[Rfam]
RNA sequence: GUAUACACAAGGUUAGCUCAAUCCAUUGUGUGUACGAUUGGAUGUUGCAAAUUUAUAAUUUGAGAUAUAGGGACCCAUUCAUCACAGCGAAGGCCGAACAAGGGUAGCCAAUCCCUUCAUUAGGACUAGCACAAGUGAUGGACUGGAGACGUGGAUGAGUGAGCUGUAGAGAGGAAGUGGUGAGUACACCACAGUCGUCAAGAGUACUACCGGUAAGGAUCACCCGCUAGUUAUGCUCUGUGGACGAGGGCAUGCCCACCUUCUCUACUAGAUACCCCGGGGGUUGGGGUGUCGAAAGUCGAAAUGUCGAUUGCUCACACAGUCUGAUAGGAUGCCGGCGGAUGCUCCACGUAUACCAGUAUAAAAAUCCGUUGAAUAGCAC
Numbered sequence: 001g002u003a004u005a006c007a008c009a010a011g012g013u014u015a016g017c018u019c020a021a022u023c024c025a026u027u028g029u030g031u032g033u034a035c036g037a038u039u040g041g042a043u044g045u046u047g048c049a050a051a052u053u054u055a056u057a058a059u060u061u062g063a064g065a066u067a068u069a070g071g072g073a074c075c076c077a078u079u080c081a082u083c084a085c086a087g088c089g090a091a092g093g094c095c096g097a098a099c100a101a102g103g104g105u106a107g108c109c110a111a112u113c114c115c116u117u118c119a120u121u122a123g124g125a126c127u128a129g130c131a132c133a134a135g136u137g138a139u140g141g142a143c144u145g146g147a148g149a150c151g152u153g154g155a156u157g158a159g160u161g162a163g164c165u166g167u168a169g170a171g172a173g174g175a176a177g178u179g180g181u182g183a184g185u186a187c188a189c190c191a192c193a194g195u196c197g198u199c200a201a202g203a204g205u206a207c208u209a210c211c212g213g214u215a216a217g218g219a220u221c222a223c224c225c226g227c228u229a230g231u232u233a234u235g236c237u238c239u240g241u242g243g244a245c246g247a248g249g250g251c252a253u254g255c256c257c258a259c260c261u262u263c264u265c266u267a268c269u270a271g272a273u274a275c276c277c278c279g280g281g282g283g284u285u286g287g288g289g290u291g292u293c294g295a296a297a298g299u300c301g302a303a304a305u306g307u308c309g310a311u312u313g314c315u316c317a318c319a320c321a322g323u324c325u326g327a328u329a330g331g332a333u334g335c336c337g338g339c340g341g342a343u344g345c346u347c348c349a350c351g352u353a354u355a356c357c358a359g360u361a362u363a364a365a366a367a368u369c370c371g372u373u374g375a376a377u378a379g380c381a382c
Stems, first nucleotide, its partner, number of pairs: 003033008079141006087130002092127002094124002100117005142360005148354001149352007156321002159318006166268005171262004177192006195247005201239005206231004211226003248257003271293010297312006322333004336374008